RNA sequence: GAGCCGGCUAUAGCCCAGUGGUUACUUCGGUUCUUUCAGCAACGUUUGAUUGCUCCCGUUCAGGGGUUCAAUCCGCGGGCACCCCUGGCUCACUU
Number, nucleotide and partner (000 for none) at each position: 001g000002a090003g089004c088005c087006g086007g085008c000009u000010a000011u000012a000013g080014c079015c078016c077017a000018g076019u075020g074021g073022u000023u000024a000025c000026u000027u071028c000029g069030g068031u000032u000033c000034u000035u000036u000037c000038a000039g000040c000041a000042a000043c000044g000045u000046u000047u000048g000049a000050u000051u000052g000053c000054u000055c000056c000057c000058g000059u000060u000061c000062a000063g000064g000065g000066g000067u000068u030069c029070a000071a027072u000073c021074c020075g019076c018077g016078g015079g014080c013081a000082c000083c000084c000085c007086u006087g005088g004089c003090u002091c000092a000093c000094u000095u000
Rfam assigns this 95-nucleotide sequence from Piaya cayana to the family "Vault RNA". The match comes from Rfam's covariance-model search (46 bits). It is annotated as a non-coding RNA gene.